[Rfam]
RNA sequence: UGACGGGGACCCGCACAAGCAGUGGAGCAUGUGGCUUAAUUCGACGCAACGCGAAGAACCUUACCUGGGUUUGACAUCCGGGAAACCCUCUAUAAAUAGGGGGGUGCCCUUCGGGGAAUCCCGUGACAGGUGCUGCAUGGCUGUCGUCAGCUCGUGUCGUGAGAUGUUGGGUUAAGUCCCGCAACGAGCGCAACCCCUGUCCUUAGUUGCCAUCGGGUAAUGCCGGGAACUCUAAGGAGACUGCCUGUGACAAGCAGGAGGAAGGUGGGGAUGACGUCAAGUCCUCAUGGCCCUUACACCCAGGGCUGCACACGUGCUACAAUGGCUGGUACAAACGGUUGCAAUACCGCGAGGUGGAGCCAAUCCGAAAAAACCAGCCUCAGUUGGGAUUGGAGUCUGCAACUCGACUCCAUGAACGUGGAAUUGCUAGUAAUCGCGGAUCAGCAUGCCGCGGUGAAUACGUUCCCGGGUCUUGUACACACCGCCCGUCAAGCUAGGAAAGCCGGAGAUACCUGAAGUCGUGGAUCCAACCCGCAAGGGAGGAUAGCGCCGAGGGUAGGGCUGGCGAUUCGAGCUAAGUCGUAACAAGG
Numbered sequence: 001u002g003a004c005g006g007g008g009a010c011c012c013g014c015a016c017a018a019g020c021a022g023u024g025g026a027g028c029a030u031g032u033g034g035c036u037u038a039a040u041u042c043g044a045c046g047c048a049a050c051g052c053g054a055a056g057a058a059c060c061u062u063a064c065c066u067g068g069g070u071u072u073g074a075c076a077u078c079c080g081g082g083a084a085a086c087c088c089u090c091u092a093u094a095a096a097u098a099g100g101g102g103g104g105u106g107c108c109c110u111u112c113g114g115g116g117a118a119u120c121c122c123g124u125g126a127c128a129g130g131u132g133c134u135g136c137a138u139g140g141c142u143g144u145c146g147u148c149a150g151c152u153c154g155u156g157u158c159g160u161g162a163g164a165u166g167u168u169g170g171g172u173u174a175a176g177u178c179c180c181g182c183a184a185c186g187a188g189c190g191c192a193a194c195c196c197c198u199g200u201c202c203u204u205a206g207u208u209g210c211c212a213u214c215g216g217g218u219a220a221u222g223c224c225g226g227g228a229a230c231u232c233u234a235a236g237g238a239g240a241c242u243g244c245c246u247g248u249g250a251c252a253a254g255c256a257g258g259a260g261g262a263a264g265g266u267g268g269g270g271a272u273g274a275c276g277u278c279a280a281g282u283c284c285u286c287a288u289g290g291c292c293c294u295u296a297c298a299c300c301c302a303g304g305g306c307u308g309c310a311c312a313c314g315u316g317c318u319a320c321a322a323u324g325g326c327u328g329g330u331a332c333a334a335a336c337g338g339u340u341g342c343a344a345u346a347c348c349g350c351g352a353g354g355u356g357g358a359g360c361c362a363a364u365c366c367g368a369a370a371a372a373a374c375c376a377g378c379c380u381c382a383g384u385u386g387g388g389a390u391u392g393g394a395g396u397c398u399g400c401a402a403c404u405c406g407a408c409u410c411c412a413u414g415a416a417c418g419u420g421g422a423a424u425u426g427c428u429a430g431u432a433a434u435c436g437c438g439g440a441u442c443a444g445c446a447u448g449c450c451g452c453g454g455u456g457a458a459u460a461c462g463u464u465c466c467c468g469g470g471u472c473u474u475g476u477a478c479a480c481a482c483c484g485c486c487c488g489u490c491a492a493g494c495u496a497g498g499a500a501a502g503c504c505g506g507a508g509a510u511a512c513c514u515g516a517a518g519u520c521g522u523g524g525a526u527c528c529a530a531c532c533c534g535c536a537a538g539g540g541a542g543g544a545u546a547g548c549g550c551c552g553a554g555g556g557u558a559g560g561g562c563u564g565g566c567g568a569u570u571c572g573a574g575c576u577a578a579g580u581c582g583u584a585a586c587a588a589g590g
Base pairs, nucleotide, nucleotide: 001479002478003476004475005474007473008472009471010470011469012468013467015463016462019427020426021425022424023423024320026318027317028316029315030314031313032312033311034309035308040055041054042053043052064304065303066302067301068300069299070298077126078125079123080122081121082120083119086103087102088101089100090099091098092097105118107116108115129293130292132291133290134289135288138287139286140282141281142280143278145276146275150189151188152187153186154185155184156165157164158163168181169180170179171178195270196269197268198267200238201237202236203235204234205233206232210227211226214225215224216223241261242260244258245257246256247255248254324379325378326377327376328375329374330373336367337366338365341360342359346355347354348353386417391412392411393410394409395408396407397406433455434454435453436452437451438450439449482589484586487582488581492576493575494574495573497571498570499569502566503565504564505563506562510558511557512556513555518551520549521548522547525545526544527543528542531540532539
Rfam assigns this 590-nucleotide part of an RNA from uncultured bacterium HF0500_16O16 to the family "Bacterial small subunit ribosomal RNA". It is one of the family's seed sequences.